Shown here is a 32-nucleotide sequence, a member of the family "L31-Firmicutes ribosomal protein leader". By type it is a cis-regulatory leader. The family's consensus secondary structure is taken from published work.
[Rfam]
RNA sequence: CUAUGAUAUUUAAUGUAUCAUGGCGGAAGGAG
Numbered sequence: 001c002u003a004u005g006a007u008a009u010u011u012a013a014u015g016u017a018u019c020a021u022g023g024c025g026g027a028a029g030g031a032g
Stems, first nucleotide, its partner, number of pairs: 001023008